Rfam assigns this 476-nucleotide part of an RNA from Streptomonospora alba to the family "Bacterial large subunit ribosomal RNA". For this family Rfam cites "The comparative RNA web (CRW) site: an online database of comparative sequence and structure information for ribosomal, intron, and other RNAs" (Cannone et al., BMC Bioinformatics, 2002).

[Rfam]
RNA sequence: GAUACCGGAGUGAGAAACUCCGGCGCCGAUUGACUAAGGGUUCCUGGGGCAGGUUGAUCCGCCCAGGGUGAGUCUGGACCUAAGGCGAGGCCGACAGGCGUAGUCGAUGGAUAACGGGUUGAUAUUCCCGUACCCGUGCAUGCGCGUCCAUGCUGAUAGCCCUGAUGCUGACCAUGUCUGGUGCUGCGGUGGCCCUUCGGGGUUGUCGUGGUGGCCGGGUCUGGGACCCGAGGGGUGUGUAGGCAAGUGAUGGGGUGACGCAGUGGGGUAGCUUUACCCGGCGGUGGUUGUCCGGGGGUAAGCGUGUAGCCCGGGGUGGUGGUAAAUCCCUGCCCUGUUAUACGGGUGAGGCGUGAUGCCGAGCCGUUUCGGCGAAGUGAGUGAUCCCGUGCUGUCGAGAAAAGCCUCUAGCGAGUGUGUGUGCGGCCAGUACCCUAAACCGACGCAGGUGGUCAGGUAGAGUAUACCGAGGCGUU
Numbered sequence: 001g002a003u004a005c006c007g008g009a010g011u012g013a014g015a016a017a018c019u020c021c022g023g024c025g026c027c028g029a030u031u032g033a034c035u036a037a038g039g040g041u042u043c044c045u046g047g048g049g050c051a052g053g054u055u056g057a058u059c060c061g062c063c064c065a066g067g068g069u070g071a072g073u074c075u076g077g078a079c080c081u082a083a084g085g086c087g088a089g090g091c092c093g094a095c096a097g098g099c100g101u102a103g104u105c106g107a108u109g110g111a112u113a114a115c116g117g118g119u120u121g122a123u124a125u126u127c128c129c130g131u132a133c134c135c136g137u138g139c140a141u142g143c144g145c146g147u148c149c150a151u152g153c154u155g156a157u158a159g160c161c162c163u164g165a166u167g168c169u170g171a172c173c174a175u176g177u178c179u180g181g182u183g184c185u186g187c188g189g190u191g192g193c194c195c196u197u198c199g200g201g202g203u204u205g206u207c208g209u210g211g212u213g214g215c216c217g218g219g220u221c222u223g224g225g226a227c228c229c230g231a232g233g234g235g236u237g238u239g240u241a242g243g244c245a246a247g248u249g250a251u252g253g254g255g256u257g258a259c260g261c262a263g264u265g266g267g268g269u270a271g272c273u274u275u276a277c278c279c280g281g282c283g284g285u286g287g288u289u290g291u292c293c294g295g296g297g298g299u300a301a302g303c304g305u306g307u308a309g310c311c312c313g314g315g316g317u318g319g320u321g322g323u324a325a326a327u328c329c330c331u332g333c334c335c336u337g338u339u340a341u342a343c344g345g346g347u348g349a350g351g352c353g354u355g356a357u358g359c360c361g362a363g364c365c366g367u368u369u370c371g372g373c374g375a376a377g378u379g380a381g382u383g384a385u386c387c388c389g390u391g392c393u394g395u396c397g398a399g400a401a402a403a404g405c406c407u408c409u410a411g412c413g414a415g416u417g418u419g420u421g422u423g424c425g426g427c428c429a430g431u432a433c434c435c436u437a438a439a440c441c442g443a444c445g446c447a448g449g450u451g452g453u454c455a456g457g458u459a460g461a462g463u464a465u466a467c468c469g470a471g472g473c474g475u476u
Base pairs, nucleotide, nucleotide: 005023006022007021008020009019010018024474025473026472027471032454033453034452035451038434039433043067044066045065046064047063048062052060053059074430075429076428077427079110080109084105085104086103088101090099091098092097114131115130116129117128118127134426135425136424137423138422139421140420141419142418143417144416247412248411252408253407254406255405256404260395261394262393263392266388267387268386271382272381273380274379277296278295279294280293281292298359299358302354303353304352305351309347310346311345313336314335315334316333317332318331319330321329322328363373364372365371366370440449441448456468457467458466459465
Lineage of the source: Bacteria > Bacillati > Streptosporangiales > Nocardiopsidaceae > Streptomonospora. The family has 102 seed sequences and 51,934 matches in Rfam 15.1. Pairs were carried over by alignment from the consensus structure, which is taken from published work.